[Rfam]
RNA: L2-Alphaproteobacteria ribosomal protein leader
Nucleotides: 102
Stems, first nucleotide, its partner, number of pairs: 001018004006014003027079006
Number, partner (000 for none) and nucleotide at each position: 001018g002017g003016g004015c005000a006014c007013c008012c009000a010000a011000g012008g013007g014006g015004g016003c017002c018001u019000a020000u021000a022000a023000c024000c025000a026000u027079g028078g029077u030076g031075g032074g033000u034000u035000c036000g037000a038000a039000a040000c041000c042000c043000a044000c045000c046000c047000u048000a049000c050000a051000u052000a053000g054000g055000u056000g057000g058000a059000g060000c061000u062000g063000g064000a065000c066000a067000u068000u069000c070000c071000g072000g073000u074032u075031u076030c077029g078028c079027c080000g081000u082000u083000u084000g085000c086000u087000a088000a089000a090000c091000g092000g093000a094000a095000g096000a097000c098000a099000g100000a101000a102000a